This 171-nucleotide RNA sequence from Asaccharospora irregularis belongs to the Rfam family "Lysine riboswitch aptamer". A search with the family's covariance model found it, with a score of 110 bits. Riboswitches are metabolite binding domains within certain messenger RNAs that serve as precision sensors for their corresponding targets. Allosteric rearrangement of mRNA structure is mediated by ligand binding, and this results in modulation of gene expression.

RNA sequence: UAAAAGGGUAGAGGCGCAGUAUUUAUUAAUACUAGUAACGAGGUAAGCACGUUGACUUACUAGGAAAGGAAAUAUUGCCGAAGUGUAUAACCGAUGCUUUAAGGUUAUAUAGCUGGGGGUGCAUAGAAUAUGUGUAUCACUGUCACUAGUUUGUGAAGAGCUAUCAUUUAA
Numbered sequence: 001u002a003a004a005a006g007g008g009u010a011g012a013g014g015c016g017c018a019g020u021a022u023u024u025a026u027u028a029a030u031a032c033u034a035g036u037a038a039c040g041a042g043g044u045a046a047g048c049a050c051g052u053u054g055a056c057u058u059a060c061u062a063g064g065a066a067a068g069g070a071a072a073u074a075u076u077g078c079c080g081a082a083g084u085g086u087a088u089a090a091c092c093g094a095u096g097c098u099u100u101a102a103g104g105u106u107a108u109a110u111a112g113c114u115g116g117g118g119g120u121g122c123a124u125a126g127a128a129u130a131u132g133u134g135u136a137u138c139a140c141u142g143u144c145a146c147u148a149g150u151u152u153g154u155g156a157a158g159a160g161c162u163a164u165c166a167u168u169u170a171a
Stems, first nucleotide, its partner, number of pairs: 007165005016078009032063007082114003085110008115141002118138008143156004